Shown here is a 95-nucleotide RNA sequence from Jannaschia aquimarina, a member of the family "Rhodo-rpoB RNA". The base pairs follow the family's consensus structure, which is taken from published work. A search with the family's covariance model found it, with a score of 45 bits. Taxonomically the source falls in Jannaschia (Bacteria, Alphaproteobacteria, Rhodobacterales, Roseobacteraceae). By type it is a cis-regulatory element.

RNA sequence: AGGACGGGGGGCACGCCUGUGGGACGGCGCGCCGGAAUUGUCCGACUUCGAAGACCCAUUUCAGGUGGCUGGUCCGGUGCCCGACGGACCCGUCC
Numbered sequence: 001a002g003g004a005c006g007g008g009g010g011g012c013a014c015g016c017c018u019g020u021g022g023g024a025c026g027g028c029g030c031g032c033c034g035g036a037a038u039u040g041u042c043c044g045a046c047u048u049c050g051a052a053g054a055c056c057c058a059u060u061u062c063a064g065g066u067g068g069c070u071g072g073u074c075c076g077g078u079g080c081c082c083g084a085c086g087g088a089c090c091c092g093u094c095c
Stems, first nucleotide, its partner, number of pairs: 002043004011032002014029004067095002070092002072089005